[Rfam]
RNA sequence: AGGCGGCGGCCGCGAGUUGUGUCCCGUGCGGCUGCAGUGUGAUACAUGUGUGUAGCACCAUGGGAUUCAGCUCACGGCCCGCCGCCA
Numbered sequence: 001a002g003g004c005g006g007c008g009g010c011c012g013c014g015a016g017u018u019g020u021g022u023c024c025c026g027u028g029c030g031g032c033u034g035c036a037g038u039g040u041g042a043u044a045c046a047u048g049u050g051u052g053u054a055g056c057a058c059c060a061u062g063g064g065a066u067u068c069a070g071c072u073c074a075c076g077g078c079c080c081g082c083c084g085c086c087a
Base pairs, nucleotide, nucleotide: 003085004084005083006082007081009079011077014073015072017070018069019068022065023064024063025062026061027060028059032055033054034053035052036051
mir-998 microRNA precursor family: an 87-nucleotide sequence from Diatraea saccharalis. Lineage of the source: Eukaryota > Eumetazoa > Endopterygota > Ditrysia > Diatraea.